[Rfam]
RNA sequence: GGUCCUGAGCGCCAGCGCCAAGCCCCGGCUCGCUGGCCGGCAACCCUCCACCGCGGCGGGGUGCCUCCGGGGACGACCUGGCCCCGCCCGCACGGGCGGGGCAAGCGCGGACC
Numbered sequence: 001g002g003u004c005c006u007g008a009g010c011g012c013c014a015g016c017g018c019c020a021a022g023c024c025c026c027g028g029c030u031c032g033c034u035g036g037c038c039g040g041c042a043a044c045c046c047u048c049c050a051c052c053g054c055g056g057c058g059g060g061g062u063g064c065c066u067c068c069g070g071g072g073a074c075g076a077c078c079u080g081g082c083c084c085c086g087c088c089c090g091c092a093c094g095g096g097c098g099g100g101g102c103a104a105g106c107g108c109g110g111a112c113c
Stems, first nucleotide, its partner, number of pairs: 001078004009038001011037006021030002039065003044061003048056002081102009
RNA: SAM (S-adenosyl methionine) riboswitch aptamer
Organism: Actinoplanes nipponensis